[Rfam]
Nucleotides: 075
Base pairs, nucleotide, nucleotide: 001074002073003072004071
Number, partner (000 for none) and nucleotide at each position: 001074c002073u003072g004071c005000a006000g007000a008000g009000a010000u011000g012000a013000u014000a015000c016000c017000g018000c019000u020000g021000a022000a023000c024000u025000c026000u027000c028000u029000c030000u031000u032000u033000c034000u035000g036000a037000u038000g039000g040000a041000g042000a043000a044000g045000u046000g047000g048000a049000g050000a051000a052000g053000c054000u055000c056000c057000u058000u059000a060000u061000g062000a063000u064000c065000c066000c067000c068000u069000g070000a071004g072003c073002a074001g075000c